[Rfam]
Nucleotides: 056
Stems, first nucleotide, its partner, number of pairs: 004022007025046009
Number, partner (000 for none) and nucleotide at each position: 001000u002000u003000a004022c005021c006020u007019c008018c009017c010016c011000c012000u013000u014000g015000c016010g017009g018008g019007g020006a021005g022004g023000u024000c025046g026045a027044a028043a029042u030041u031040u032039g033038c034000c035000g036000u037000c038033g039032c040031a041030a042029a043028u044027u045026u046025c047000g048000g049000g050000u051000g052000g053000g054000g055000g056000u
Overview
A member of the RNA family "Whalefall-1 RNA" from Rhizomicrobium palustre, 56 nucleotides long. The match comes from Rfam's covariance-model search (38 bits). The organism belongs to Rhizomicrobium, within Bacteria. Rfam 15.1 lists 134 matches to the family in 26 species. It is annotated as a small RNA.